RNA sequence: UGGCGCACCCGAACAGGGACCUGACACGGGGAAAAGGCUGAGGAAGAGGCCACUAAAGUCUGGGCGCCCGAAAGUGAAAGUGGAAAGAAUAUUCCUCCGGACGUCGUUGGGAGCCUGCCGCGUUGGAACCAGAGGUGAGUAAUAGCUGUGCUGAUUAUGGACAAGGAAUUAAGCCAGCAUCAAAUUUAUGUAGGGCAAUUAAAAAGAGGCUUUCUAAAAACACGAGCGAGUAAAGGUUAAAAGUAAUGAUUUGUUUAAGUUUUUUGAUUUUGUAAAAAGAACCUGCCUU
Numbered sequence: 001u002g003g004c005g006c007a008c009c010c011g012a013a014c015a016g017g018g019a020c021c022u023g024a025c026a027c028g029g030g031g032a033a034a035a036g037g038c039u040g041a042g043g044a045a046g047a048g049g050c051c052a053c054u055a056a057a058g059u060c061u062g063g064g065c066g067c068c069c070g071a072a073a074g075u076g077a078a079a080g081u082g083g084a085a086a087g088a089a090u091a092u093u094c095c096u097c098c099g100g101a102c103g104u105c106g107u108u109g110g111g112a113g114c115c116u117g118c119c120g121c122g123u124u125g126g127a128a129c130c131a132g133a134g135g136u137g138a139g140u141a142a143u144a145g146c147u148g149u150g151c152u153g154a155u156u157a158u159g160g161a162c163a164a165g166g167a168a169u170u171a172a173g174c175c176a177g178c179a180u181c182a183a184a185u186u187u188a189u190g191u192a193g194g195g196c197a198a199u200u201a202a203a204a205a206g207a208g209g210c211u212u213u214c215u216a217a218a219a220a221c222a223c224g225a226g227c228g229a230g231u232a233a234a235g236g237u238u239a240a241a242a243g244u245a246a247u248g249a250u251u252u253g254u255u256u257a258a259g260u261u262u263u264u265u266g267a268u269u270u271u272g273u274a275a276a277a278a279g280a281a282c283c284u285g286c287c288u289u
Base pairs, nucleotide, nucleotide: 008031009030010029036050038048039047092139093138094137095134096133100129102126105122106121107120109119110118147163148162151160152159153158170216171215172212173210174209175208223266224265225264226263228262229261230260231259234252235251236250237249238248239247276289277288279286